[Rfam]
RNA: Ruegeria cis52 sRNA
Organism: Mesorhizobium australicum
RNA sequence: UGCGCAGCGCGUGCUUGACCACGACGCUUUUGAAGGAAAGCCCCUUCAGGCGUGCCGUGCGGAUAUAUUGCUGCGUCAUCACCUCGACCAUCGAGGCGCGUGUCAUGCGUGCGAUAUAGCCGAUGCCGUAGAUCGCCAGCGUGAUCACCGGCAGGGUGAAAUUGUAGAACGUGAUGC
Dot-bracket structure: ..(((.(.(((..((((..((......((............(...(.(.((((((...((((.....))))...)......(((((.....)))))))))).).)...)............)))).)).))..)))).)))....(((..((.(.(......).).....))).)).